[Rfam]
RNA sequence: ACACAUCUCUAGUUUGUGCGUGAAUCCAACCCUCUCAUCACAGCCGUCCACUGUUUUAUUAUUACAAAUCUUGAGGCAGGCCAUCCGAUGGUGUUAGAUUCACGCACAAACUCGUGAUCUGUCU
Number, nucleotide and partner (000 for none) at each position: 001a122002c121003a120004c000005a118006u117007c116008u000009c000010u000011a112012g111013u110014u109015u108016g107017u106018g105019c104020g103021u102022g101023a100024a099025u098026c097027c000028a095029a094030c093031c000032c000033u000034c000035u091036c090037a000038u000039c000040a000041c000042a000043g000044c000045c000046g081047u000048c079049c000050a000051c000052u000053g000054u000055u000056u000057u000058a000059u000060u000061a000062u000063u000064a000065c000066a000067a000068a000069u000070c000071u000072u000073g000074a000075g000076g000077c000078a000079g048080g000081c046082c000083a000084u000085c000086c000087g000088a000089u000090g036091g035092u000093g030094u029095u028096a000097g026098a025099u024100u023101c022102a021103c020104g019105c018106a017107c016108a015109a014110a013111c012112u011113c000114g000115u000116g007117a006118u005119c000120u003121g002122u001123c000124u000

The record is a 124-nucleotide RNA from Nyssa sinensis, which matches "MIR403 microRNA precursor family" in Rfam. The source organism's lineage runs through Eukaryota, Streptophytina, Gunneridae, asterids and Nyssa. Rfam 15.1 lists 215 matches to the family in 108 species. For this family Rfam cites "High throughput approaches reveal splicing of primary microRNA transcripts and tissue specific expression of mature microRNAs in Vitis vinifera" (Mica et al., BMC Genomics, 2009). Its family is annotated with miRNA-mediated post-transcriptional gene silencing and RISC complex in the Gene Ontology.